Source information
The record is a 74-nucleotide RNA from Natrialba asiatica, which matches "eL15-Euryarchaeota ribosomal protein leader" in Rfam. By type it is a cis-regulatory leader. It is one of the family's seed sequences.

RNA sequence: CCUGUCCGGCACGACGCCGCCACAGGACGGAAUGUGAUCCGCGGGGAAUCGUCCUCGCCGGGUUGAACCAUCAC
Numbered sequence: 001c002c003u004g005u006c007c008g009g010c011a012c013g014a015c016g017c018c019g020c021c022a023c024a025g026g027a028c029g030g031a032a033u034g035u036g037a038u039c040c041g042c043g044g045g046g047a048a049u050c051g052u053c054c055u056c057g058c059c060g061g062g063u064u065g066a067a068c069c070a071u072c073a074c
Base pairs, nucleotide, nucleotide: 001026002025003024004023005022029069030068036064037063038062039061040060